[Rfam]
RNA sequence: UAUUAACAUGAUGAUCGAAAACUUUCGCCCCUAGCUGAAAGCAAUUGAAACUUCUCAUGUUGAUUGCGUGAUUGGUCUUACUGAUAAUACUU
Numbered sequence: 001u002a003u004u005a006a007c008a009u010g011a012u013g014a015u016c017g018a019a020a021a022c023u024u025u026c027g028c029c030c031c032u033a034g035c036u037g038a039a040a041g042c043a044a045u046u047g048a049a050a051c052u053u054c055u056c057a058u059g060u061u062g063a064u065u066g067c068g069u070g071a072u073u074g075g076u077c078u079u080a081c082u083g084a085u086a087a088u089a090c091u092u
Stems, first nucleotide, its partner, number of pairs: 001089004

Rfam assigns this 92-nucleotide sequence from Scaptodrosophila lebanonensis to the family "Small nucleolar RNA Me28S-Gm1083". Rfam links the family to the GO terms nucleolus and RNA processing. Pairs were carried over by alignment from the consensus structure. It is annotated as a C/D-box small nucleolar RNA. The family has 11 seed sequences and 97 matches in Rfam 15.1. The source organism's lineage runs through Eukaryota, Metazoa, Diptera, Acalyptratae and Scaptodrosophila. The literature on the family includes a 2005 paper in RNA by Huang et al., "Genome-wide analyses of two families of snoRNA genes from Drosophila melanogaster, demonstrating the extensive utilization of introns for coding of snoRNAs".